RNA sequence: UCGGUGCCACAACGGCUUCCUGACGUGGCACGUCAUUUUUAUUGGAGCA
Numbered sequence: 001u002c003g004g005u006g007c008c009a010c011a012a013c014g015g016c017u018u019c020c021u022g023a024c025g026u027g028g029c030a031c032g033u034c035a036u037u038u039u040u041a042u043u044g045g046a047g048c049a
Base pairs, nucleotide, nucleotide: 004031005030006029007028008027009026010025013022014021015048016047017046019045020044

The record is a 49-nucleotide RNA from Sulfitobacter sediminilitoris, which matches "SAM/SAH riboswitch aptamer" in Rfam.
The literature on the family includes a 2019 paper in Nucleic Acids Res by Weickhmann et al., "The structure of the SAM/SAH-binding riboswitch".
It scores 63 bits against the family's covariance model.